[Rfam]
RNA sequence: AAACUAGUUAAAGCGCCUGUACUGGAAAAAUUGGACGGACAAGUCAGUUUCCAGUAGACGAGGAGGAGGAGUAUCGAGAUUUCGGCGGAUACCUCCCGGCCGCGAAGCCCGGUCGUCAUAUCCAAUACUUAAAGCAGCGGAGCAAUCGGCUGUACAACGGUAUGGAUGGGCUUACUA
Numbered sequence: 001a002a003a004c005u006a007g008u009u010a011a012a013g014c015g016c017c018u019g020u021a022c023u024g025g026a027a028a029a030a031u032u033g034g035a036c037g038g039a040c041a042a043g044u045c046a047g048u049u050u051c052c053a054g055u056a057g058a059c060g061a062g063g064a065g066g067a068g069g070a071g072u073a074u075c076g077a078g079a080u081u082u083c084g085g086c087g088g089a090u091a092c093c094u095c096c097c098g099g100c101c102g103c104g105a106a107g108c109c110c111g112g113u114c115g116u117c118a119u120a121u122c123c124a125a126u127a128c129u130u131a132a133a134g135c136a137g138c139g140g141a142g143c144a145a146u147c148g149g150c151u152g153u154a155c156a157a158c159g160g161u162a163u164g165g166a167u168g169g170g171c172u173u174a175c176u177a
Stems, first nucleotide, its partner, number of pairs: 020056008065096005074085004097115006120167005126162002135152004140147002
Overview: glmS glucosamine-6-phosphate activated ribozyme aptamer: a 177-nucleotide RNA sequence from Planococcus massiliensis. NCBI's taxonomy places the organism under Bacteria, Bacillati, Bacillota, Caryophanales, Planococcus. Rfam describes the family as follows. This entry contains a glucosamine-6-phosphate activated ribozyme that is found in the mRNA for GlmS. GlmS is an enzyme that uses fructose-6-phosphate and glutamine to generate glucosamine-6-phosphate. The ribozyme catalyses self cleavage of the glmS mRNA that is thought to regulate GlmS activity. It is annotated as a riboswitch.